Ribosomal protein L20 leader: a 130-nucleotide sequence from Lentibacillus sp. JNUCC-1. It scores 82 bits against the family's covariance model. The family's consensus secondary structure was predicted with CMfinder. The source organism's lineage runs through Bacteria, Bacillati, Caryophanales, Bacillaceae and Lentibacillus. Rfam describes the family as follows. This family is a putative r-protein leader autoregulatory structure found in B. subtilis and other low-GC Gram-positive bacteria.
RNA sequence: CGAGACAAGUAGAAGCACCCGCUUCUCACCUGUUCAACGCAUGCGUGCAGUUGGCUGGUUCAAUUCUUUCUUCAUGAUUAACAAAUGGGGAAGUGUGGGUGCAUUUAUGUACCGACACUUUUUUAUUUGC
Numbered sequence: 001c002g003a004g005a006c007a008a009g010u011a012g013a014a015g016c017a018c019c020c021g022c023u024u025c026u027c028a029c030c031u032g033u034u035c036a037a038c039g040c041a042u043g044c045g046u047g048c049a050g051u052u053g054g055c056u057g058g059u060u061c062a063a064u065u066c067u068u069u070c071u072u073c074a075u076g077a078u079u080a081a082c083a084a085a086u087g088g089g090g091a092a093g094u095g096u097g098g099g100u101g102c103a104u105u106u107a108u109g110u111a112c113c114g115a116c117a118c119u120u121u122u123u124u125a126u127u128u129g130c
Stems, first nucleotide, its partner, number of pairs: 011026006028059003036052003039048002094117003098113006